[Rfam]
RNA sequence: CAACCCAUGCAGUGAUGCAUGGCUGAACUCUAAGGGGUCAGCAGAGGUCAUAGUACUAGAGGUUGUCAACGACCAAUAGGAAGGAC
Numbered sequence: 001c002a003a004c005c006c007a008u009g010c011a012g013u014g015a016u017g018c019a020u021g022g023c024u025g026a027a028c029u030c031u032a033a034g035g036g037g038u039c040a041g042c043a044g045a046g047g048u049c050a051u052a053g054u055a056c057u058a059g060a061g062g063u064u065g066u067c068a069a070c071g072a073c074c075a076a077u078a079g080g081a082a083g084g085a086c
Stems, first nucleotide, its partner, number of pairs: 001025002005022007038045002047086003056079003061074003

Record summary:
Shown here is an 86-nucleotide RNA from Lachnotalea glycerini, a member of the family "Group II catalytic intron D1-D4-1". It scores 64 bits against the family's covariance model. Rfam links the family to the GO term Group II intron splicing. Lineage of the source: Bacteria > Bacillati > Bacillota > Lachnospirales > Lachnotalea. A reference for the family is Chu et al. (2001), "Control of branch-site choice by a group II intron", EMBO J. The pairing is the family consensus, mapped onto this sequence. About the family: Group II introns are found in rRNA, tRNA and mRNA of organelles in fungi, plants and protists, and also in mRNA in bacteria.